[Rfam]
Background:
Rfam assigns this 139-nucleotide sequence from Caenorhabditis bovis to the family "Nematode snoRNA ceN88".
RNA sequence: AUUCUCUUAUCUUGGCGCUUCCACUGGUGAAUGUGGCCGUGUAUGUAAUAGGAGAAAAAGUAGUGCCAAUAGGCUUUCGGGUCUCCUUCGGUGUUCCUCUAGAUAUCGAUGAAUAUCAUCCUCUGGGCUCGAGACAAUA
Dot-bracket structure: ..((((((((....((((..((((........))))..)))).....)))))))).........(((....))).(((((((((.....((..(((.((........)).)))..)).......)))))))))......
Taxonomically the source falls in Caenorhabditis (Eukaryota, Protostomia, Chromadorea, Rhabditina). Gene Ontology terms of the family: RNA processing and nucleolus. The match comes from Rfam's covariance-model search (144 bits).